Streptomyces sRNA 4677: a 252-nucleotide RNA from Streptomyces sp. WAC 01438. Pairs were carried over by alignment from the consensus structure. The family's RNA type in Rfam is small RNA. The match comes from Rfam's covariance-model search (202 bits). Rfam's curators write: Located in the intergenic region between anti-sigma factor SCO4677 gene and a putative regulatory protein gene SCO4676. scr4677 expression requires the SCO4677 activity and scr4677 sRNA itself seem to affect the levels of the SCO4676-associated transcripts.

RNA sequence: UGUUCCGGUGCCGUCGGCCGUCUUUCCCAAGAACCACGGGAGAGAAAGAAACCCCGCCAAGCCCCACCCCUCCCGCCCACGGCGCAUGCUCACUCGCGUGGGUGAACAUCACCAACUGGAGUGGAUAUGCCACAGGUUGCCUGCCCUACGCUCGGCGCAGCACGGCACACAGCCCCAGACACGCAAACGGCCCCCGCCGGGAGUGACGUCCCGUUGCGAGGGCCUGACCACCAAGGAAGUUAGGGCUUCCCG
Numbered sequence: 001u002g003u004u005c006c007g008g009u010g011c012c013g014u015c016g017g018c019c020g021u022c023u024u025u026c027c028c029a030a031g032a033a034c035c036a037c038g039g040g041a042g043a044g045a046a047a048g049a050a051a052c053c054c055c056g057c058c059a060a061g062c063c064c065c066a067c068c069c070c071u072c073c074c075g076c077c078c079a080c081g082g083c084g085c086a087u088g089c090u091c092a093c094u095c096g097c098g099u100g101g102g103u104g105a106a107c108a109u110c111a112c113c114a115a116c117u118g119g120a121g122u123g124g125a126u127a128u129g130c131c132a133c134a135g136g137u138u139g140c141c142u143g144c145c146c147u148a149c150g151c152u153c154g155g156c157g158c159a160g161c162a163c164g165g166c167a168c169a170c171a172g173c174c175c176c177a178g179a180c181a182c183g184c185a186a187a188c189g190g191c192c193c194c195c196g197c198c199g200g201g202a203g204u205g206a207c208g209u210c211c212c213g214u215u216g217c218g219a220g221g222g223c224c225u226g227a228c229c230a231c232c233a234a235g236g237a238a239g240u241u242a243g244g245g246c247u248u249c250c251c252g
Base pairs, nucleotide, nucleotide: 007232008231009230010229016077017076018075020074090105091104092103093102094101095100122154123153124152189224190223191222192221193220195218196217197216199212200211201210202209235250236249237248238247239246